[Rfam]
RNA: Plastid-psbA-1 3UTR RNA
RNA sequence: UUCAAGUUUCAUCUACAAAUGAUAAGAUUUUUGUCUUAGUGUAUCUAAUCGUUGAAACAAGUAGCAUAACCCCAUGUCCUUUUUUCUUGCUUUAGCAAGACAUUGGGGUAUUGCUACUUU
Number, nucleotide and partner (000 for none) at each position: 001u000002u000003c000004a000005a000006g000007u000008u022009u000010c021011a020012u019013c000014u000015a000016c000017a000018a000019a012020u011021g010022a008023u000024a000025a000026g000027a000028u000029u000030u000031u000032u000033g000034u000035c000036u000037u000038a000039g000040u000041g000042u000043a000044u000045c000046u000047a000048a000049u000050c000051g000052u000053u000054g000055a000056a000057a000058c000059a119060a118061g117062u116063a115064g114065c113066a112067u000068a000069a109070c108071c000072c106073c105074a104075u000076g000077u000078c000079c000080u000081u000082u000083u000084u000085u100086c099087u098088u097089g000090c000091u000092u000093u000094a000095g000096c000097a088098a087099g086100a085101c000102a000103u000104u074105g073106g072107g000108g070109u069110a000111u000112u066113g065114c064115u063116a062117c061118u060119u059120u000